[Rfam]
RNA sequence: GCCGGUCCUCGGUAGUGGUCUGCGGCCCGCCCCUCGGGGUGUGCCGCGGGCUUCGAUCGAAGGCCGGC
Numbered sequence: 001g002c003c004g005g006u007c008c009u010c011g012g013u014a015g016u017g018g019u020c021u022g023c024g025g026c027c028c029g030c031c032c033c034u035c036g037g038g039g040u041g042u043g044c045c046g047c048g049g050g051c052u053u054c055g056a057u058c059g060a061a062g063g064c065c066g067g068c
Stems, first nucleotide, its partner, number of pairs: 001068007009060005017052010028041005

Actino-pnp RNA: a 68-nucleotide RNA from Nocardiopsis composta. Rfam classes the family as a cis-regulatory element. A search with the family's covariance model found it, with a score of 63 bits. The source organism's lineage runs through Bacteria, Bacillati, Streptosporangiales, Nocardiopsidaceae and Nocardiopsis.